[Rfam]
RNA sequence: CGCACGUCUAGGGUGCAUGGCCCGAAAAGCCCGAUUCCUGGCGGGCCUGACGUGCGGUCUUUCCCAGGA
Dot-bracket structure: ((((((((..((((.....)))).....(((((..[[[[[[)))))..)))))))).......]]]]]]
Shown here is a 69-nucleotide RNA sequence from Magnetococcus marinus, a member of the family "int-alpA RNA". Rfam describes the family as follows. Acidobacteria (1 example), Planctomycetes (1 example), Proteobacteria.